RNA sequence: GUUCAAAAUAUAGAAUGAUCUCGUAUAGUACCGGGGAUACGGCCCGGAAGUUUCUACCCGAAAACCGUUAAUUUUCGGACUACGAGGAUAUCAGUGUUAUGA
Number, nucleotide and partner (000 for none) at each position: 001g000002u000003u000004c000005a000006a000007a000008a000009u000010a000011u000012a000013g000014a000015a000016u000017g000018a000019u087020c086021u085022c084023g083024u082025a081026u000027a000028g000029u049030a000031c047032c046033g045034g044035g043036g000037a000038u000039a000040c000041g000042g000043c035044c034045c033046g032047g031048a000049a029050g000051u000052u000053u000054c000055u000056a000057c000058c078059c077060g076061a075062a074063a073064a072065c000066c000067g000068u000069u000070a000071a000072u064073u063074u062075u061076c060077g059078g058079a000080c000081u025082a024083c023084g022085a021086g020087g019088a000089u000090a000091u000092c000093a000094g000095u000096g000097u000098u000099a000100u000101g000102a000
RNA: Purine riboswitch aptamer